[Rfam]
RNA sequence: GUUAUUCCUUAUCUUCUCUAAUAAGUUAGUUUGUUGGAGCCUGUCUUCCUGUGCUCUGGCCCAGUUGAAAUCUGGAUAAAACACACGAAGACAGGCUCAUCGUCGUAGUCGCCGUAUUCAGCGUCCCC
Number, nucleotide and partner (000 for none) at each position: 001g113002u000003u111004a000005u000006u000007c000008c000009u000010u000011a000012u000013c000014u000015u000016c000017u000018c000019u000020a000021a000022u000023a103024a000025g101026u000027u000028a000029g000030u000031u000032u000033g000034u000035u000036g000037g098038a097039g096040c095041c094042u093043g092044u091045c090046u000047u000048c087049c000050u085051g084052u083053g000054c000055u080056c000057u078058g077059g000060c000061c000062c000063a000064g000065u000066u000067g000068a000069a000070a000071u000072c000073u000074g000075g000076a000077u058078a057079a000080a055081a000082c000083a052084c051085a050086c000087g048088a000089a000090g045091a044092c043093a042094g041095g040096c039097u038098c037099a000100u000101c025102g000103u023104c000105g000106u000107a000108g000109u000110c000111g003112c000113c001114g000115u000116a000117u000118u000119c000120a000121g000122c000123g000124u000125c000126c000127c000128c000

Notes: tp2: a 128-nucleotide RNA from Brenneria goodwinii. The literature on the family includes a 2003 paper in Nucleic Acids Res by Hershberg et al., "A survey of small RNA-encoding genes in Escherichia coli". Rfam classes the family as a small RNA. Lineage of the source: Bacteria > Pseudomonadati > Pseudomonadota > Enterobacterales > Brenneria.